The record is a 334-nucleotide sequence from Rickettsiales endosymbiont of Stachyamoeba lipophora, which matches "Alphaproteobacteria transfer-messenger RNA" in Rfam. It scores 220 bits against the family's covariance model. Its Rfam clan is "tRNA clan". Bacterial tmRNA, also known as 10Sa RNA or SsrA, is named for its dual tRNA and mRNA-like properties. Its role is to liberate the mRNA from a stalled ribosome.

RNA sequence: AGUCUUCACUUUUUAUUAGUCUGUGAUAUAUUAGUAAAUGUUAAGUUUUGCUUAACUAUGGUGAUAAACGUUGCUCAAAAUAAGCAAUACGGACCCGGGGGCAGAACCCGGCACCUCCACCAAAACAAUAUAUGGGGGUGACACAGCUUCGACGUUUGUGGUAAAGGUGUAAUUUUCACUCAGCAUGAUACCGCUGUAUAAUGGAUCAUUUUACAAAUGCCAACGAUAACAAUGGUAUUGGACUUGUAGCAGCAAACGAUAACUUCCAAGCGGAAGUUGCAAACGCUGCAUAGGUUCGCGGAUAGGGGGCGCCGGGCAACAGAACGCCCCCACU
Numbered sequence: 001a002g003u004c005u006u007c008a009c010u011u012u013u014u015a016u017u018a019g020u021c022u023g024u025g026a027u028a029u030a031u032u033a034g035u036a037a038a039u040g041u042u043a044a045g046u047u048u049u050g051c052u053u054a055a056c057u058a059u060g061g062u063g064a065u066a067a068a069c070g071u072u073g074c075u076c077a078a079a080a081u082a083a084g085c086a087a088u089a090c091g092g093a094c095c096c097g098g099g100g101g102c103a104g105a106a107c108c109c110g111g112c113a114c115c116u117c118c119a120c121c122a123a124a125a126c127a128a129u130a131u132a133u134g135g136g137g138g139u140g141a142c143a144c145a146g147c148u149u150c151g152a153c154g155u156u157u158g159u160g161g162u163a164a165a166g167g168u169g170u171a172a173u174u175u176u177c178a179c180u181c182a183g184c185a186u187g188a189u190a191c192c193g194c195u196g197u198a199u200a201a202u203g204g205a206u207c208a209u210u211u212u213a214c215a216a217a218u219g220c221c222a223a224c225g226a227u228a229a230c231a232a233u234g235g236u237a238u239u240g241g242a243c244u245u246g247u248a249g250c251a252g253c254a255a256a257c258g259a260u261a262a263c264u265u266c267c268a269a270g271c272g273g274a275a276g277u278u279g280c281a282a283a284c285g286c287u288g289c290a291u292a293g294g295u296u297c298g299c300g301g302a303u304a305g306g307g308g309g310c311g312c313c314g315g316g317c318a319a320c321a322g323a324a325c326g327c328c329c330c331c332a333c334u
Base pairs, nucleotide, nucleotide: 040056041055042054043053044052060180061179062178063177064176070173071172072171073170074169076167085158086157087156089155090154091153095111096110097109098108099107112140113139114138115137116136117135118134181196182195183194184193186208187207188206191204192203299314300313301312305331306330307329308328309327310326